[Rfam]
RNA sequence: CACAUCAGCACGAGUUGCUGAUGUGUCAGCAAAUCGCGUCCUGGAGGGCGCGAUUUGUUGCCAUGUCAGCAACUCGCACUGACGUGG
Numbered sequence: 001c002a003c004a005u006c007a008g009c010a011c012g013a014g015u016u017g018c019u020g021a022u023g024u025g026u027c028a029g030c031a032a033a034u035c036g037c038g039u040c041c042u043g044g045a046g047g048g049c050g051c052g053a054u055u056u057g058u059u060g061c062c063a064u065g066u067c068a069g070c071a072a073c074u075c076g077c078a079c080u081g082a083c084g085u086g087g
Stems, first nucleotide, its partner, number of pairs: 001086003005082004011076011023064003027060012040047002
RNA: MIR7486 microRNA precursor family